[Rfam]
RNA sequence: AACUCAUCAUGAUUGGCGGAGGGACAGGCCCUGUGAAGCCAAGGCAAGGGUCGUUGACCGAGUGCCAAUUCCGACGGAUCGCGUAAUCCGAAAGAUGAGCA
Numbered sequence: 001a002a003c004u005c006a007u008c009a010u011g012a013u014u015g016g017c018g019g020a021g022g023g024a025c026a027g028g029c030c031c032u033g034u035g036a037a038g039c040c041a042a043g044g045c046a047a048g049g050g051u052c053g054u055u056g057a058c059c060g061a062g063u064g065c066c067a068a069u070u071c072c073g074a075c076g077g078a079u080c081g082c083g084u085a086a087u088c089c090g091a092a093a094g095a096u097g098a099g100c101a
Base pairs, nucleotide, nucleotide: 003099004098005097006096007095008094013042014041015040016039017038021031022030023029027072028071043066044065045064046063049059050058051057052056070093075090076089077088078087079086
Background
Shown here is a 101-nucleotide RNA, a member of the family "SAM riboswitch aptamer (S box leader)". Gene Ontology term of the family: regulation of gene expression. Rfam's curators write: The SAM riboswitch is found upstream of a number of genes which code for proteins involved in methionine or cysteine biosynthesis in Gram-positive bacteria. The match comes from Rfam's covariance-model search (72 bits).